[Rfam]
RNA sequence: GGCUGGUUCGAUGGUAGUGGGUUAUCAGAACUUAUUAAUGUUAAUGUCACAAAAGUUGGUGUUAACCCCCCACUGCUAAAAUCUGACUGGCUAAA
Number, nucleotide and partner (000 for none) at each position: 001g000002g091003c090004u089005g088006g087007u086008u085009c000010g084011a082012u000013g000014g000015u078016a074017g073018u072019g071020g070021g069022u000023u000024a000025u000026c061027a060028g000029a000030a057031c000032u000033u000034a000035u000036u000037a000038a000039u000040g000041u000042u000043a000044a000045u000046g000047u000048c000049a000050c000051a000052a000053a000054a000055g000056u000057u030058g000059g000060u027061g026062u000063u000064a000065a000066c000067c000068c000069c021070c020071c019072a018073c017074u016075g000076c000077u000078a015079a000080a000081a000082u011083c000084u010085g008086a007087c006088u005089g004090g003091c002092u000093a000094a000095a000

Y RNA: a 95-nucleotide sequence from Gorilla gorilla. Rfam classes the family as a non-coding RNA gene.